[Rfam]
RNA sequence: AGCAGGGUGCCACUAAACCAAAAAAGAGUGAGCCGGCGGCGCAGGGGGCGCGGUCGGCAGGU
Numbered sequence: 001a002g003c004a005g006g007g008u009g010c011c012a013c014u015a016a017a018c019c020a021a022a023a024a025a026g027a028g029u030g031a032g033c034c035g036g037c038g039g040c041g042c043a044g045g046g047g048g049c050g051c052g053g054u055c056g057g058c059a060g061g062u
Stems, first nucleotide, its partner, number of pairs: 032058006039051004
This 62-nucleotide RNA from Erwinia mallotivora belongs to the Rfam family "DnaX ribosomal frameshifting element". The base pairs follow the family's consensus structure, which is taken from published work. It scores 49 bits against the family's covariance model. Its family is annotated with translational frameshifting in the Gene Ontology. Rfam describes the family as follows. This family represents a ribosomal frameshifting element found in the mRNA of the dnaX gene in E. coli. The dnaX gene has two encoded products tau and gamma which are produced in a 1:1 ratio. The gamma protein is synthesised due to programmed frameshifting and is shorter than tau. The two products of the dnaX gene are DNA polymerase III subunits. On this family, see Larsen et al., J Mol Biol 1997: "Structural probing and mutagenic analysis of the stem-loop required for Escherichia coli dnaX ribosomal frameshifting: programmed efficiency of 50%". By type it is a frameshift element.